[Rfam]
RNA sequence: CCUGCUUUACUACAAGCAGUUUCUUACUUUGACAUGCGGAAUUGGUAACGGUUCUGUAUGAAGCUCAGAGGACAAUGUGAGCAACGAAGCCGCAAGGCUUGGAGAGCGAGCCGUGAGGCAGACUCAACUCCGGCAGCGUCAAGCUGGACAGGGAG
Number, nucleotide and partner (000 for none) at each position: 001c000002c019003u018004g017005c016006u015007u014008u000009a000010c000011u000012a000013c000014a007015a006016g005017c004018a003019g002020u000021u000022u000023c000024u000025u000026a000027c000028u069029u068030u067031g066032a065033c060034a059035u058036g057037c056038g055039g054040a053041a052042u051043u050044g049045g000046u000047a000048a000049c044050g043051g042052u041053u040054c039055u038056g037057u036058a035059u034060g033061a000062a000063g000064c000065u032066c031067a030068g029069a028070g000071g000072a000073c000074a000075a000076u000077g000078u000079g000080a000081g000082c000083a000084a000085c000086g000087a100088a099089g098090c097091c096092g000093c000094a000095a000096g091097g090098c089099u088100u087101g000102g125103a124104g123105a000106g000107c000108g000109a000110g000111c118112c117113g000114u000115g000116a000117g112118g111119c000120a000121g000122a000123c104124u103125c102126a000127a000128c000129u148130c147131c146132g145133g144134c143135a000136g000137c000138g000139u000140c000141a000142a000143g134144c133145u132146g131147g130148a129149c000150a000151g000152g000153g000154a000155g000
Rfam assigns this 155-nucleotide RNA sequence from Desulfonema limicola to the family "Group II catalytic intron D1-D4-7". On this family, see Lehmann and Schmidt, Crit Rev Biochem Mol Biol 2003: "Group II introns: structure and catalytic versatility of large natural ribozymes". Taxonomically the source falls in Desulfonema (Bacteria, Desulfobacteria, Desulfobacterales, Desulfococcaceae). From the family's description: Group II introns are found in rRNA, tRNA and mRNA of organelles in fungi, plants and protists, and also in mRNA in bacteria. A search with the family's covariance model found it, with a score of 103 bits. The pairing is the family consensus, mapped onto this sequence.